Notes
The record is a 146-nucleotide RNA from Cohnella rhizosphaerae, which matches "c-di-AMP riboswitch aptamer (ydaO/yuaA leader)" in Rfam.
[Rfam]
RNA sequence: CAUAGUGGUAUGCUUAAUUUCCGAUUUGUUCGGAGAGCGGGGGGAACCACCAUUUGGGGCGAAUCGCGACAGGACCCGUUCCUGUCGGUAGGGUGCCAUCUUACCCGAGUCCGUCAGCUAACCUCGUCAGCAUGAAGAUGGGUCCU
Numbered sequence: 001c002a003u004a005g006u007g008g009u010a011u012g013c014u015u016a017a018u019u020u021c022c023g024a025u026u027u028g029u030u031c032g033g034a035g036a037g038c039g040g041g042g043g044g045a046a047c048c049a050c051c052a053u054u055u056g057g058g059g060c061g062a063a064u065c066g067c068g069a070c071a072g073g074a075c076c077c078g079u080u081c082c083u084g085u086c087g088g089u090a091g092g093g094u095g096c097c098a099u100c101u102u103a104c105c106c107g108a109g110u111c112c113g114u115c116a117g118c119u120a121a122c123c124u125c126g127u128c129a130g131c132a133u134g135a136a137g138a139u140g141g142g143u144c145c146u
Base pairs, nucleotide, nucleotide: 011132012131013130014129018036019035020034021033022032023031024030037127038126039125040124041123042122048056049055057112058111059110065088067087068086069085070084071083072082091106092105093104094103

A search with the family's covariance model found it, with a score of 68 bits. Lineage of the source: Bacteria > Bacillati > Bacillota > Bacilli > Cohnella.